[Rfam]
RNA sequence: AAACGAAUAGAACUCCGAGCAAAAAUAUCUAAGGCCUGUGGCUAUGAUAUUGCGCCGGGGCCCUGCUGGAAACGGCAGGACCUUCCAUUUUGAAAAGGGGUAUCCAUUUUAGUAUC
Numbered sequence: 001a002a003a004c005g006a007a008u009a010g011a012a013c014u015c016c017g018a019g020c021a022a023a024a025a026u027a028u029c030u031a032a033g034g035c036c037u038g039u040g041g042c043u044a045u046g047a048u049a050u051u052g053c054g055c056c057g058g059g060g061c062c063c064u065g066c067u068g069g070a071a072a073c074g075g076c077a078g079g080a081c082c083u084u085c086c087a088u089u090u091u092g093a094a095a096a097g098g099g100g101u102a103u104c105c106a107u108u109u110u111a112g113u114a115u116c
Stems, first nucleotide, its partner, number of pairs: 003110001006107001012101005019053003025050005033043004058083003062079007084093002
Annotation
The record is a 116-nucleotide sequence from Pseudoselenomonas ruminantium, which matches "Molybdenum/Tungsten riboswitch aptamer (Moco RNA motif)" in Rfam. The match comes from Rfam's covariance-model search (65 bits). A reference for the family is Regulski et al. (2008), "in molybdenum cofactor and tungsten cofactor metabolism", Mol Microbiol. The family's consensus secondary structure is taken from published work.